[Rfam]
Nucleotides: 090
Stems, first nucleotide, its partner, number of pairs: 004087005013043005021032003026078004044070004049066002052062004074082001
Number, partner (000 for none) and nucleotide at each position: 001000c002000c003000a004087c005086c006085a007084u008083c009000c010000a011000g012000a013043g014042c015041g016040g017039a018000c019000g020000a021032g022031a023030g024000a025000c026078c027077u028076g029075g030023c031022u032021c033000g034000u035000u036000g037000a038000c039017u040016c041015c042014g043013c044070a045069g046068c047067a048000a049066c050065c051000a052062c053061c054060c055059g056000u057000u058000u059055c060054g061053g062052g063000c064000a065050g066049g067047u068046g069045c070044u071000u072000c073000c074082g075029c076028c077027g078026g079000g080000a081000c082074c083008g084007a085006u086005g087004g088000a089000a090000a
The record is a 90-nucleotide RNA sequence from Arthrobacter rhombi, which matches "SAM riboswitch aptamer (S box leader)" in Rfam.
From the family's description: The SAM riboswitch is found upstream of a number of genes which code for proteins involved in methionine or cysteine biosynthesis in Gram-positive bacteria.
Its Rfam clan is "SAM clan".
For this family Rfam cites "The S box regulon: a new global transcription termination control system for methionine and cysteine biosynthesis genes in gram-positive bacteria" (Grundy and Henkin, Mol Microbiol, 1998).
The organism belongs to Arthrobacter, within Bacteria.
Rfam 15.1 lists 9,625 matches to the family in 4,158 species.
Pairs were carried over by alignment from the consensus structure, which is taken from published work.